[Rfam]
Rfam assigns this 89-nucleotide sequence from Tursiops truncatus to the family "mir-544 microRNA precursor family". Its family is annotated with RISC complex and miRNA-mediated post-transcriptional gene silencing in the Gene Ontology. Pairs were carried over by alignment from the consensus structure, which was predicted with RNAalifold. The family has 16 seed sequences and 10,750 matches in Rfam 15.1. A reference for the family is Chiang et al. (2010), "Mammalian microRNAs: experimental evaluation of novel and previously annotated genes", Genes Dev. A search with the family's covariance model found it, with a score of 70 bits.
RNA sequence: AUCACCUAGGGAUCUUGUUAAAAUGAAGAUUCUGAUUCUGGAUGGGGUCUGAAAGUCUUCAUUCUUAACAAGUUCUCAGGGGAUGCCUC
Numbered sequence: 001a002u003c004a005c006c007u008a009g010g011g012a013u014c015u016u017g018u019u020a021a022a023a024u025g026a027a028g029a030u031u032c033u034g035a036u037u038c039u040g041g042a043u044g045g046g047g048u049c050u051g052a053a054a055g056u057c058u059u060c061a062u063u064c065u066u067a068a069c070a071a072g073u074u075c076u077c078a079g080g081g082g083a084u085g086c087c088u089c
Stems, first nucleotide, its partner, number of pairs: 003082001005080001009076003014072007022063002025060005031054001033052001